The family of this 167-nucleotide RNA sequence from Blautia obeum is "Clostridiales-1 RNA". Rfam classes the family as a small RNA. The sequence is in the family's curated seed alignment. The organism belongs to Blautia obeum, within Bacteria.
[Rfam]
RNA sequence: GAACACCAGGGUUAAAAACUGCAAAAGACGUUCGUGCUUGCACGAUAAGGCUUUUGAGUUUGGAACCCGCCAAAUAUGAGAAAGUAGCGAUUUACGAUAGUAAAUCAGCGGAUUUCGAAUAUUUGCAGGAGUGUGGGAGUAGCUUGCUACGGAACACUCCGUGGUAC
Numbered sequence: 001g002a003a004c005a006c007c008a009g010g011g012u013u014a015a016a017a018a019c020u021g022c023a024a025a026a027g028a029c030g031u032u033c034g035u036g037c038u039u040g041c042a043c044g045a046u047a048a049g050g051c052u053u054u055u056g057a058g059u060u061u062g063g064a065a066c067c068c069g070c071c072a073a074a075u076a077u078g079a080g081a082a083a084g085u086a087g088c089g090a091u092u093u094a095c096g097a098u099a100g101u102a103a104a105u106c107a108g109c110g111g112a113u114u115u116c117g118a119a120u121a122u123u124u125g126c127a128g129g130a131g132u133g134u135g136g137g138a139g140u141a142g143c144u145u146g147c148u149a150c151g152g153a154a155c156a157c158u159c160c161g162u163g164g165u166a167c
Stems, first nucleotide, its partner, number of pairs: 005165001010067004016061005022056006029049001031047001032045005071125007080116004087109002089106007128160007139150004
Dot-bracket structure: ....(....((((..(((((.((((((.(.((((((....))))).).).)))))))))))..))))...(((((((..((((...(((((((((....))))))).))...))))..)))))))..(((((((....((((....))))...)))))))....)..